The family of this 468-nucleotide part of an RNA from Prunus yedoensis is "Archaeal large subunit ribosomal RNA". The literature on the family includes a 2001 paper in Science by Yusupov et al., "Crystal structure of the ribosome at 5.5 A resolution". A search with the family's covariance model found it, with a score of 1424 bits. Gene Ontology terms of the family: structural constituent of ribosome and ribosome. The family has 91 seed sequences and 2,955 matches in Rfam 15.1. The source organism's lineage runs through Eukaryota, rosids, Rosaceae, Amygdaloideae and Prunus yedoensis.
RNA sequence: CGCAUCGGGGGCUCGAAAAAAUGCUUGGCUCCGGCUUGGCUUUCAACGCGACCCCAGGUCAGGCGGGGUUACCCGCUGAAUUUAAGCAUAUCAAUAAGCGGAGGAAAAGAAACUUACAAGGAUUCCCCUAGUAACGGCGAGCGAACCGGGAAUAGCCCAGCUUGAGAAUCGGGCGCCCAUGGCGUCCGAAUUGUAGUCUGGAGAAGCGUCCUCAGCGGCGGACCGGGCCCAAGUCCACUGGAAGGUGGCGCCGGAGAGGGUGAGAGCCCCGUUGUGCCCGGACCCUGUCGCACCACGAGGCGCUGUCGGCGAGUCGGGUUGUUUGGGAAUGCAGCCCCAAUCGGGCGGUAAAUUCUGUCCAAGGCUAAAUACGGGCGAGAGACCGAUAGCAAACAAGUACCGCGAGGGAAAGAUGAAAAGGACUUUGAAAAGAGAGUCAAAGAGUGCUUGAAAUUGUCGGGAGGGAAG
Numbered sequence: 001c002g003c004a005u006c007g008g009g010g011g012c013u014c015g016a017a018a019a020a021a022u023g024c025u026u027g028g029c030u031c032c033g034g035c036u037u038g039g040c041u042u043u044c045a046a047c048g049c050g051a052c053c054c055c056a057g058g059u060c061a062g063g064c065g066g067g068g069u070u071a072c073c074c075g076c077u078g079a080a081u082u083u084a085a086g087c088a089u090a091u092c093a094a095u096a097a098g099c100g101g102a103g104g105a106a107a108a109g110a111a112a113c114u115u116a117c118a119a120g121g122a123u124u125c126c127c128c129u130a131g132u133a134a135c136g137g138c139g140a141g142c143g144a145a146c147c148g149g150g151a152a153u154a155g156c157c158c159a160g161c162u163u164g165a166g167a168a169u170c171g172g173g174c175g176c177c178c179a180u181g182g183c184g185u186c187c188g189a190a191u192u193g194u195a196g197u198c199u200g201g202a203g204a205a206g207c208g209u210c211c212u213c214a215g216c217g218g219c220g221g222a223c224c225g226g227g228c229c230c231a232a233g234u235c236c237a238c239u240g241g242a243a244g245g246u247g248g249c250g251c252c253g254g255a256g257a258g259g260g261u262g263a264g265a266g267c268c269c270c271g272u273u274g275u276g277c278c279c280g281g282a283c284c285c286u287g288u289c290g291c292a293c294c295a296c297g298a299g300g301c302g303c304u305g306u307c308g309g310c311g312a313g314u315c316g317g318g319u320u321g322u323u324u325g326g327g328a329a330u331g332c333a334g335c336c337c338c339a340a341u342c343g344g345g346c347g348g349u350a351a352a353u354u355c356u357g358u359c360c361a362a363g364g365c366u367a368a369a370u371a372c373g374g375g376c377g378a379g380a381g382a383c384c385g386a387u388a389g390c391a392a393a394c395a396a397g398u399a400c401c402g403c404g405a406g407g408g409a410a411a412g413a414u415g416a417a418a419a420g421g422a423c424u425u426u427g428a429a430a431a432g433a434g435a436g437u438c439a440a441a442g443a444g445u446g447c448u449u450g451a452a453a454u455u456g457u458c459g460g461g462a463g464g465g466a467a468g
Base pairs, nucleotide, nucleotide: 001009027036028035029034052065054063055062072103073101074100075099076098077097083090084089113120114119124151125150126149127148135141154366155365156364157363162196163195164194174184175183176182177181205304206303207302208301215296217294218293227278229276233249235248236247237246238245252256258270259269260268316337317336318335319334320333321332322331343360344359345358346357347356400407401406